[Rfam]
RNA sequence: ACUUCCGAGGAGCGUUGCAGCGCCCAGCCACCCGCCGGUGGCCCCAGGGCGUGAGGCUCGGAAACCGUGUUUUGCAACGACGCUCAUCCACC
Numbered sequence: 001a002c003u004u005c006c007g008a009g010g011a012g013c014g015u016u017g018c019a020g021c022g023c024c025c026a027g028c029c030a031c032c033c034g035c036c037g038g039u040g041g042c043c044c045c046a047g048g049g050c051g052u053g054a055g056g057c058u059c060g061g062a063a064a065c066c067g068u069g070u071u072u073u074g075c076a077a078c079g080a081c082g083c084u085c086a087u088c089c090a091c092c
Base pairs, nucleotide, nucleotide: 003063004062005061006060007059008058021051022050023049024048025047

Description: The family of this 92-nucleotide RNA sequence from Extensimonas vulgaris is "SAH (S-adenosyl-L-homocysteine) riboswitch aptamer". The family's consensus secondary structure is taken from published work. NCBI's taxonomy places the organism under Bacteria, Pseudomonadota, Betaproteobacteria, Comamonadaceae, Extensimonas.